[Rfam]
RNA sequence: GAGGAGGUGAGGAUACUUUCCCCAUUGAUCGACUCUGAUUCCAUCUGUGCUAAUCAGGUCAAAAGAGCCAAGCCAGGAAAACUGAUCCUU
Numbered sequence: 001g002a003g004g005a006g007g008u009g010a011g012g013a014u015a016c017u018u019u020c021c022c023c024a025u026u027g028a029u030c031g032a033c034u035c036u037g038a039u040u041c042c043a044u045c046u047g048u049g050c051u052a053a054u055c056a057g058g059u060c061a062a063a064a065g066a067g068c069c070a071a072g073c074c075a076g077g078a079a080a081a082c083u084g085a086u087c088c089u090u
Stems, first nucleotide, its partner, number of pairs: 001090005